[Rfam]
RNA sequence: GGAGGUGUGUGGGUGCCUGGUGGCCCUCCUGGUCUUCAACACCAGUGGGCGGCGCGACGCGUCGUCGGCGGGUUCGAUUCCCGUCCACCUCC
Numbered sequence: 001g002g003a004g005g006u007g008u009g010u011g012g013g014u015g016c017c018u019g020g021u022g023g024c025c026c027u028c029c030u031g032g033u034c035u036u037c038a039a040c041a042c043c044a045g046u047g048g049g050c051g052g053c054g055c056g057a058c059g060c061g062u063c064g065u066c067g068g069c070g071g072g073u074u075c076g077a078u079u080c081c082c083g084u085c086c087a088c089c090u091c092c
Base pairs, nucleotide, nucleotide: 001092002091003090004089005088006087007086009084012027013026015024016023017022029045030044031043032042033041048066049065050064051063052062069083070082071081072080

This 92-nucleotide RNA from Pilimelia terevasa belongs to the Rfam family "Selenocysteine transfer RNA". Its family is annotated with triplet codon-amino acid adaptor activity in the Gene Ontology. The base pairs follow the family's consensus structure, which is taken from published work.